[Rfam]
RNA sequence: AUUAUAUUUUACUUUCCACAAAAGUGAAAUAGUGUACGAAAGUACUAUCGACAAAUUCGUUCCGGGCUGCCGGUUUAGUAAUAAGCCGGUGAAUUUCGUCAAAUUCGGGGAAGCCUGUAGUGUGGUAAUCCCGAGCCAAGUCCUGAGCAUUCAGGAAAGGUGUAGAGACUUUAUGGCGAACACCCUAACUUUUCAAGAAGGGUGAAGAGAAAGUCCAGACUUGCAAAUCUCAUUCCAA
Numbered sequence: 001a002u003u004a005u006a007u008u009u010u011a012c013u014u015u016c017c018a019c020a021a022a023a024g025u026g027a028a029a030u031a032g033u034g035u036a037c038g039a040a041a042g043u044a045c046u047a048u049c050g051a052c053a054a055a056u057u058c059g060u061u062c063c064g065g066g067c068u069g070c071c072g073g074u075u076u077a078g079u080a081a082u083a084a085g086c087c088g089g090u091g092a093a094u095u096u097c098g099u100c101a102a103a104u105u106c107g108g109g110g111a112a113g114c115c116u117g118u119a120g121u122g123u124g125g126u127a128a129u130c131c132c133g134a135g136c137c138a139a140g141u142c143c144u145g146a147g148c149a150u151u152c153a154g155g156a157a158a159g160g161u162g163u164a165g166a167g168a169c170u171u172u173a174u175g176g177c178g179a180a181c182a183c184c185c186u187a188a189c190u191u192u193u194c195a196a197g198a199a200g201g202g203u204g205a206a207g208a209g210a211a212a213g214u215c216c217a218g219a220c221u222u223g224c225a226a227a228u229c230u231c232a233u234u235c236c237a238a
Stems, first nucleotide, its partner, number of pairs: 005031011035044003095180004100175002105134006115125004135161002141155002165216001167215005183202004190195001223236001225234002
RNA: Group I catalytic intron
Organism: Flavilitoribacter nigricans